[Rfam]
RNA sequence: GCGUGAUGCGAUAGGGCAAGAGGCAGAACCCAAACUGCCAAAGUGAGCGGCGUGGCGACAGAAGCACAGCGGUAUAUGUGUCUUUUCUGGAAUAAAUGGGAUGCACCACUCCCGUGCAGAGAAGCACGUUAAACCUCGCAGGUGCGCCACUGCUGAACGCUUGCAGAGAAGCAAGUAAAAAAACGCAGUGUCAGCAGUUCCAGAAAAGUGCAACGCGUUCUGGUAACCAAACUUGGGAGAAAACCGUCCGUGAUACCGCACGGGCGGUUUUUC
Numbered sequence: 001g002c003g004u005g006a007u008g009c010g011a012u013a014g015g016g017c018a019a020g021a022g023g024c025a026g027a028a029c030c031c032a033a034a035c036u037g038c039c040a041a042a043g044u045g046a047g048c049g050g051c052g053u054g055g056c057g058a059c060a061g062a063a064g065c066a067c068a069g070c071g072g073u074a075u076a077u078g079u080g081u082c083u084u085u086u087c088u089g090g091a092a093u094a095a096a097u098g099g100g101a102u103g104c105a106c107c108a109c110u111c112c113c114g115u116g117c118a119g120a121g122a123a124g125c126a127c128g129u130u131a132a133a134c135c136u137c138g139c140a141g142g143u144g145c146g147c148c149a150c151u152g153c154u155g156a157a158c159g160c161u162u163g164c165a166g167a168g169a170a171g172c173a174a175g176u177a178a179a180a181a182a183a184c185g186c187a188g189u190g191u192c193a194g195c196a197g198u199u200c201c202a203g204a205a206a207a208g209u210g211c212a213a214c215g216c217g218u219u220c221u222g223g224u225a226a227c228c229a230a231a232c233u234u235g236g237g238a239g240a241a242a243a244c245c246g247u248c249c250g251u252g253a254u255a256c257c258g259c260a261c262g263g264g265c266g267g268u269u270u271u272u273c
Stems, first nucleotide, its partner, number of pairs: 001048002004045002022039005029236002032233001051217003055214001064081005070258006082208012240271013